RNA: tRNA
Organism: Capsulimonas corticalis
RNA sequence: GAAGCGGUGGCUUAAAGGAAGAGCAUUGCUUUUGCAAGGCAAAGAUGCGGGUUCAAGUCCCGCCCGCUUCU
Numbered sequence: 001g002a003a004g005c006g007g008u009g010g011c012u013u014a015a016a017g018g019a020a021g022a023g024c025a026u027u028g029c030u031u032u033u034g035c036a037a038g039g040c041a042a043a044g045a046u047g048c049g050g051g052u053u054c055a056a057g058u059c060c061c062g063c064c065c066g067c068u069u070c071u
Stems, first nucleotide, its partner, number of pairs: 001070007010024004026042005047063005
Dot-bracket structure: (((((((..((((.......)))).(((((.......)))))....(((((.......)))))))))))).